[Rfam]
RNA sequence: CCGAGAUAGGGGUACAAAUCCUGCCACUGGCGUUUCCCUGGACCUAAGCGAUGAUGCGCAAGCUAGCGACGAGUCUCGGCGUUUAAAGGCUCGUGUUCCGUUCGCGGCGGAGGGCCUUUAAAC
Numbered sequence: 001c002c003g004a005g006a007u008a009g010g011g012g013u014a015c016a017a018a019u020c021c022u023g024c025c026a027c028u029g030g031c032g033u034u035u036c037c038c039u040g041g042a043c044c045u046a047a048g049c050g051a052u053g054a055u056g057c058g059c060a061a062g063c064u065a066g067c068g069a070c071g072a073g074u075c076u077c078g079g080c081g082u083u084u085a086a087a088g089g090c091u092c093g094u095g096u097u098c099c100g101u102u103c104g105c106g107g108c109g110g111a112g113g114g115c116c117u118u119u120a121a122a123c
Stems, first nucleotide, its partner, number of pairs: 001079006007072001009070001010045004015040002022032004048067002056063002082122011098107003

Flavobacterium-1 RNA: a 123-nucleotide sequence. Pairs were carried over by alignment from the consensus structure, which is taken from published work. Rfam's curators put it in the seed alignment.